[Rfam]
RNA sequence: CUUCACCGAGCCGAGCCACAGCGGCGCCUCGGCGCUCUUCUCCUUGCCGUACGUGGCGAGCAGGGCCUGCGCCUC
Numbered sequence: 001c002u003u004c005a006c007c008g009a010g011c012c013g014a015g016c017c018a019c020a021g022c023g024g025c026g027c028c029u030c031g032g033c034g035c036u037c038u039u040c041u042c043c044u045u046g047c048c049g050u051a052c053g054u055g056g057c058g059a060g061c062a063g064g065g066c067c068u069g070c071g072c073c074u075c
Base pairs, nucleotide, nucleotide: 015025016024017023032070033069038065039064043060044059045058047056048055049054
About this RNA:
Rfam assigns this 75-nucleotide RNA sequence from Streptomyces albus to the family "ASpks TB sRNA". NCBI's taxonomy places the organism under Bacteria, Bacillati, Actinomycetota, Actinomycetes, Streptomyces albus subsp. albus. The match comes from Rfam's covariance-model search (69 bits).